tRNA: a 75-nucleotide RNA sequence from Candidatus Korarchaeum cryptofilum. The family's consensus secondary structure is taken from published work. Its family is annotated with triplet codon-amino acid adaptor activity in the Gene Ontology.

[Rfam]
RNA sequence: GGGCCCGUGGCUCAGACUGGUCAGAGCGCCCGGCUGAUAACCGGGAGGCCGGGGGUUCAAGUCCCCCCGGGCCCA
Numbered sequence: 001g002g003g004c005c006c007g008u009g010g011c012u013c014a015g016a017c018u019g020g021u022c023a024g025a026g027c028g029c030c031c032g033g034c035u036g037a038u039a040a041c042c043g044g045g046a047g048g049c050c051g052g053g054g055g056u057u058c059a060a061g062u063c064c065c066c067c068c069g070g071g072c073c074c075a
Stems, first nucleotide, its partner, number of pairs: 001074007010027004029045005051067005